Description:
This 87-nucleotide RNA sequence from Caenorhabditis bovis belongs to the Rfam family "mir-57 microRNA precursor family". The organism belongs to Caenorhabditis, within Eukaryota.

[Rfam]
Nucleotides: 087
Stems, first nucleotide, its partner, number of pairs: 012074004018068004025063001027061004032057004
Number, partner (000 for none) and nucleotide at each position: 001000g002000u003000c004000g005000g006000a007000u008000c009000a010000g011000c012074u013073a014072c015071c016000c017000u018068g019067u020066a021065g022000u023000a024000c025063c026000g027061a028060g029059c030058u031000g032057u033056g034055u035054g036000u037000a038000c039000a040000a041000c042000a043000c044000g045000a046000a047000a048000a049000a050000u051000g052000u053000c054035c055034a056033c057032a058030a059029g060028c061027u062000u063025g064000a065021c066020u067019a068018c069000a070000a071015g072014g073013u074012g075000a076000c077000u078000g079000u080000g081000a082000a083000g084000a085000u086000c087000a